[Rfam]
RNA sequence: AUGGAGCUGCUCAGUACGUUAUUCGCACAUCAACCUCUGGGCCGAUAAGCAUUCCGAAGGGGGCUAGCACUGUUGCGGCCGUGGUCGCAUUAUUCCAGCCACCCACCUGUUAAAGCAGGUCCGGGAGAGCUGAUUUGAAGACGGCUAUGGCGGCUCCACC
Dot-bracket structure: .((((((((((.(((.(((...............(((((((((...............(((.(((.(...((.((((((....)))))).))..).)))..))).............)))))).))).............))))))..))))))))))..

Rfam assigns this 160-nucleotide RNA sequence to the family "6S / SsrS RNA". It scores 57 bits against the family's covariance model. The family has 150 seed sequences and 5,006 matches in Rfam 15.1.